[Rfam]
A member of the RNA family "Phenylalanine leader peptide" from Lucilia cuprina, 122 nucleotides long.

RNA sequence: AAUUAUGAAUAUGAAUCUUGGUUUCUUUUCUUUCUUUAGCAACUCCUACUAAGGGGCUUUUGUCGUUCGAGAAAUAAAAGAAGACAAGAUUUAAAGCCCCUCUAAAUAGGGGCUUUUUUUAU
Number, nucleotide and partner (000 for none) at each position: 001a000002a000003u000004u000005a000006u000007g000008a000009a000010u000011a000012u000013g000014a000015a000016u089017c088018u087019u086020g085021g000022u083023u082024u081025c080026u079027u078028u077029u076030c000031u074032u073033u072034c000035u070036u069037u000038a067039g000040c000041a000042a000043c000044u051045c000046c000047u000048a000049c000050u000051a044052a000053g000054g000055g064056g063057c062058u000059u000060u000061u000062g057063u056064c055065g000066u000067u038068c000069g036070a035071g000072a033073a032074a031075u000076a029077a028078a027079a026080g025081a024082a023083g022084a000085c020086a019087a018088g017089a016090u000091u000092u000093a116094a115095a114096g113097c112098c111099c110100c109101u108102c000103u000104a000105a000106a000107u000108a101109g100110g099111g098112g097113c096114u095115u094116u093117u000118u000119u000120u000121a000122u000
By type it is a cis-regulatory leader.
Taxonomically the source falls in Lucilia (Eukaryota, Ecdysozoa, Neoptera, Eumetabola).
Its family is annotated with cellular amino acid metabolic process in the Gene Ontology.